The family of this 71-nucleotide RNA sequence from Aeromicrobium sp. Root495 is "Actino-pnp RNA".
Taxonomically the source falls in Aeromicrobium (Bacteria, Bacillati, Propionibacteriales, Nocardioidaceae).

[Rfam]
RNA sequence: CUCGGUCCUCGGUAGUGGCCUUCGGGACCCGCCUCGUCGGGUCAGCCCGCGGGCCUCGAUCGAAGACCGGC
Numbered sequence: 001c002u003c004g005g006u007c008c009u010c011g012g013u014a015g016u017g018g019c020c021u022u023c024g025g026g027a028c029c030c031g032c033c034u035c036g037u038c039g040g041g042u043c044a045g046c047c048c049g050c051g052g053g054c055c056u057c058g059a060u061c062g063a064a065g066a067c068c069g070g071c
Stems, first nucleotide, its partner, number of pairs: 002070006009063005017055005023049004029045001031043001